[Rfam]
RNA sequence: GUUCCUAUAGUUGAAUAACAACGGUGGUUUUUCAGAUCACAAGUUCUGGUUAGAGUCCUGGUGGGAAUU
Numbered sequence: 001g002u003u004c005c006u007a008u009a010g011u012u013g014a015a016u017a018a019c020a021a022c023g024g025u026g027g028u029u030u031u032u033c034a035g036a037u038c039a040c041a042a043g044u045u046c047u048g049g050u051u052a053g054a055g056u057c058c059u060g061g062u063g064g065g066a067a068u069u
Stems, first nucleotide, its partner, number of pairs: 001068007010022004024040005045061002048058002
RNA: tRNA